[Rfam]
RNA sequence: CCUCCGUCCUUCCCGCACAGAAGGACGGACCGAGGAACCGGCGCUCUCUGCCCUGACCGCGCCGGCUCCUCCCUUCGGCGGCCGGGAACCGCACACCCGGCGGCCGAUACGGCUCGGGGCUGCGGUGCCUUGGGUACCCCCGGCUCGUGCGGAGCCCGGGGAAGGGUUGAGGGUCCCUCCCAGGCGC
Numbered sequence: 001c002c003u004c005c006g007u008c009c010u011u012c013c014c015g016c017a018c019a020g021a022a023g024g025a026c027g028g029a030c031c032g033a034g035g036a037a038c039c040g041g042c043g044c045u046c047u048c049u050g051c052c053c054u055g056a057c058c059g060c061g062c063c064g065g066c067u068c069c070u071c072c073c074u075u076c077g078g079c080g081g082c083c084g085g086g087a088a089c090c091g092c093a094c095a096c097c098c099g100g101c102g103g104c105c106g107a108u109a110c111g112g113c114u115c116g117g118g119g120c121u122g123c124g125g126u127g128c129c130u131u132g133g134g135u136a137c138c139c140c141c142g143g144c145u146c147g148u149g150c151g152g153a154g155c156c157c158g159g160g161g162a163a164g165g166g167u168u169g170a171g172g173g174u175c176c177c178u179c180c181c182a183g184g185c186g187c
Base pairs, nucleotide, nucleotide: 003029004028005027006026008024009023010022011021012020032071033070034069035068036067038065039064040063041062043060044059045056046055075107076106077105078104079103081101084098085097086096111156112155113154114153116150159181160180161179163178164177165176166175
A member of the RNA family "Streptomyces sRNA scr5239" from Streptomyces sp. TS71-3, 187 nucleotides long. Rfam classes the family as a small RNA. Rfam links the family to the GO terms mRNA binding and negative regulation of translation.